[Rfam]
RNA sequence: CGGUCUAUUAACCGACUAUUAAGCUUUCUCGGUGUUUACUAAGUAUGUCCAGUCAUCUGGAUUGCGAGUGGCUCCUGUCACUCUGUUUGACGCCUCCCUGUUAACUUCCUUAGAGCCGCCGCGAGCGGCUCUUUUUUU
Numbered sequence: 001c002g003g004u005c006u007a008u009u010a011a012c013c014g015a016c017u018a019u020u021a022a023g024c025u026u027u028c029u030c031g032g033u034g035u036u037u038a039c040u041a042a043g044u045a046u047g048u049c050c051a052g053u054c055a056u057c058u059g060g061a062u063u064g065c066g067a068g069u070g071g072c073u074c075c076u077g078u079c080a081c082u083c084u085g086u087u088u089g090a091c092g093c094c095u096c097c098c099u100g101u102u103a104a105c106u107u108c109c110u111u112a113g114a115g116c117c118g119c120c121g122c123g124a125g126c127g128g129c130u131c132u133u134u135u136u137u138u
Stems, first nucleotide, its partner, number of pairs: 001043001005014001015040001020038005047062004066083005089102004112132008